[Rfam]
RNA sequence: GGGGACGUUCUGGAUUCGACAGGGAUAGGUCGAGCUUACGUUGCGAGUCGAGGUGCGGCCUCGUUAAAACGCAUUAGCCUAUAACUGGCAAAGAAAACAAUAACUUCGCUUUAGCUGCAUAAGCUAAGCGGUCUCUCCUCUCCAUCGCCCAUGUGGAGUGGUUGAGACUCACUUAUAGUGGGAUACGCCUUACUCCCUCCGCCUGAGGGAGUUGGAAGAGAUUAAUCAGGCUAGCUACACGGAAGCCUGUCUUUGGGCCGAUGUGUUAGCGAAAUGCUAAUACAAAGACUACGCUCGUAGAAGCGUAAGUGUCGUUAUCUCUGGACGUGGGUUCAAUUCCCACCGUCUCCAUAU
Dot-bracket structure: (((((((............(((((((((...(.(((((((((.(((((((((([[[[.)))))......]]]]....................................((((((.......))))))..(((((.((.(.((((..[[[[[)))).).))..))))).........]]]]]......((.((((((...[.[[..)))))).)).............]].].((((((((...(((.[[[[.[[)))...)))).))))..........]]...]]]]...)))))....))))))))).)..)))))))))...(((((.......))))))))))))....
Numbered sequence: 001g002g003g004g005a006c007g008u009u010c011u012g013g014a015u016u017c018g019a020c021a022g023g024g025a026u027a028g029g030u031c032g033a034g035c036u037u038a039c040g041u042u043g044c045g046a047g048u049c050g051a052g053g054u055g056c057g058g059c060c061u062c063g064u065u066a067a068a069a070c071g072c073a074u075u076a077g078c079c080u081a082u083a084a085c086u087g088g089c090a091a092a093g094a095a096a097a098c099a100a101u102a103a104c105u106u107c108g109c110u111u112u113a114g115c116u117g118c119a120u121a122a123g124c125u126a127a128g129c130g131g132u133c134u135c136u137c138c139u140c141u142c143c144a145u146c147g148c149c150c151a152u153g154u155g156g157a158g159u160g161g162u163u164g165a166g167a168c169u170c171a172c173u174u175a176u177a178g179u180g181g182g183a184u185a186c187g188c189c190u191u192a193c194u195c196c197c198u199c200c201g202c203c204u205g206a207g208g209g210a211g212u213u214g215g216a217a218g219a220g221a222u223u224a225a226u227c228a229g230g231c232u233a234g235c236u237a238c239a240c241g242g243a244a245g246c247c248u249g250u251c252u253u254u255g256g257g258c259c260g261a262u263g264u265g266u267u268a269g270c271g272a273a274a275u276g277c278u279a280a281u282a283c284a285a286a287g288a289c290u291a292c293g294c295u296c297g298u299a300g301a302a303g304c305g306u307a308a309g310u311g312u313c314g315u316u317a318u319c320u321c322u323g324g325a326c327g328u329g330g331g332u333u334c335a336a337u338u339c340c341c342a343c344c345g346u347c348u349c350c351a352u353a354u
Stems, first nucleotide, its partner, number of pairs: 001350007020323009032312001034310009044297005049063005054073004110128006131168005137161002140158001142156004148182005189215002192212006201232001203230002234270004238265004245258003249289004254282002327343005

The record is a 354-nucleotide sequence from Shouchella oshimensis, which matches "transfer-messenger RNA" in Rfam.
The family's RNA type in Rfam is non-coding RNA gene.
A search with the family's covariance model found it, with a score of 215 bits.
Rfam's curators write: Bacterial tmRNA, also known as 10Sa RNA or SsrA, is named for its dual tRNA and mRNA-like properties.